[Rfam]
RNA sequence: UUUUUUAAAGAAAAUUUGGCCUUCCAACAAGGGAAGGCCAAGGAACUUCCUU
Numbered sequence: 001u002u003u004u005u006u007a008a009a010g011a012a013a014a015u016u017u018g019g020c021c022u023u024c025c026a027a028c029a030a031g032g033g034a035a036g037g038c039c040a041a042g043g044a045a046c047u048u049c050c051u052u
Stems, first nucleotide, its partner, number of pairs: 008052003012048002015042011
The family of this 52-nucleotide RNA sequence from Lentivirus humimdef1 is "HIV Ribosomal frameshift signal". On this family, see Biswas et al., J Virol 2004: "The human immunodeficiency virus type 1 ribosomal frameshifting site is an invariant sequence determinant and an important target for antiviral therapy". It is annotated as a frameshift element. Its family is annotated with viral translational frameshifting in the Gene Ontology. The family's consensus secondary structure is taken from published work. This family represents the HIV Ribosomal frameshift signal. HIV uses a system called -1 ribosomal frameshifting to produce the required ratio of Gag and Gag-Pol polyproteins. The stem-loop structure of the frameshift signal is thought to impede the ribosome and cause slippage in the 5' direction, this causes the -1 frameshift and translation then continues in the new frame. The source organism's lineage runs through Viruses, Pararnavirae, Revtraviricetes, Orthoretrovirinae and Lentivirus humimdef1.